[Rfam]
RNA sequence: GCCGCCCUGACAAGUCUUUUACGGCCAGCUCCUGCUGAACUCCCCCAGGACCGGAAGGUAGCAAGGGUAAGCGGUUGAAGCGGCGCGAUAGAAGGUGCUUGUCAGGAU
Numbered sequence: 001g002c003c004g005c006c007c008u009g010a011c012a013a014g015u016c017u018u019u020u021a022c023g024g025c026c027a028g029c030u031c032c033u034g035c036u037g038a039a040c041u042c043c044c045c046c047a048g049g050a051c052c053g054g055a056a057g058g059u060a061g062c063a064a065g066g067g068u069a070a071g072c073g074g075u076u077g078a079a080g081c082g083g084c085g086c087g088a089u090a091g092a093a094g095g096u097g098c099u100u101g102u103c104a105g106g107a108u
Stems, first nucleotide, its partner, number of pairs: 008104008017093005022087002024084002
RNA: Bacteroidales small SRP